The family of this 52-nucleotide RNA from Pannonibacter phragmitetus is "Xanthine riboswitch aptamer (NMT1 RNA)". Lineage of the source: Bacteria > Pseudomonadota > Alphaproteobacteria > Hyphomicrobiales > Pannonibacter phragmitetus. Pairs were carried over by alignment from the consensus structure, which is taken from published work.

[Rfam]
RNA sequence: CCCCGGAGUAGAAGCUGUCAGCGCCAUCCCGGCGUGGGUCAUUGCUCCUCAA
Numbered sequence: 001c002c003c004c005g006g007a008g009u010a011g012a013a014g015c016u017g018u019c020a021g022c023g024c025c026a027u028c029c030c031g032g033c034g035u036g037g038g039u040c041a042u043u044g045c046u047c048c049u050c051a052a
Stems, first nucleotide, its partner, number of pairs: 005048006015037001019038001021035005
Annotation
Its family is annotated with purine nucleobase binding in the Gene Ontology.